[Rfam]
RNA sequence: AAGCCAGCUUAGCCUAGCGGUUCCUUCACAAUUUGUUAAUUCGUGUUCAACUCUAGUUCCUAGCAGUUCAAGUCCCGGGGGCGCUGGCUGGCUUUUUA
Numbered sequence: 001a002a003g004c005c006a007g008c009u010u011a012g013c014c015u016a017g018c019g020g021u022u023c024c025u026u027c028a029c030a031a032u033u034u035g036u037u038a039a040u041u042c043g044u045g046u047u048c049a050a051c052u053c054u055a056g057u058u059c060c061u062a063g064c065a066g067u068u069c070a071a072g073u074c075c076c077g078g079g080g081g082c083g084c085u086g087g088c089u090g091g092c093u094u095u096u097u098a
Base pairs, nucleotide, nucleotide: 002093003092004091005090006089007088012082013081014080015079018077019076020075025072026071
RNA: Vault RNA